[Rfam]
RNA sequence: AUAAUAUAAUUAUUUGUACCGUAGACAGUAGGAGCGGCUUGCCGCUUAAUAAUCCUGCCGAGGACAAGACGCUCUUUCUUAAAUAAAGAAGACGACUUUUUCUGCCCUCGUGUCUGCCUAUGUAGACUGAGGGCUUUUUAUAUGGUAUG
Numbered sequence: 001a002u003a004a005u006a007u008a009a010u011u012a013u014u015u016g017u018a019c020c021g022u023a024g025a026c027a028g029u030a031g032g033a034g035c036g037g038c039u040u041g042c043c044g045c046u047u048a049a050u051a052a053u054c055c056u057g058c059c060g061a062g063g064a065c066a067a068g069a070c071g072c073u074c075u076u077u078c079u080u081a082a083a084u085a086a087a088g089a090a091g092a093c094g095a096c097u098u099u100u101u102c103u104g105c106c107c108u109c110g111u112g113u114c115u116g117c118c119u120a121u122g123u124a125g126a127c128u129g130a131g132g133g134c135u136u137u138u139u140a141u142a143u144g145g146u147a148u149g
Base pairs, nucleotide, nucleotide: 028058029057030056031055032054033053034045035044036043104134105133106132107131108130109129110128112127113126114125115124116123117122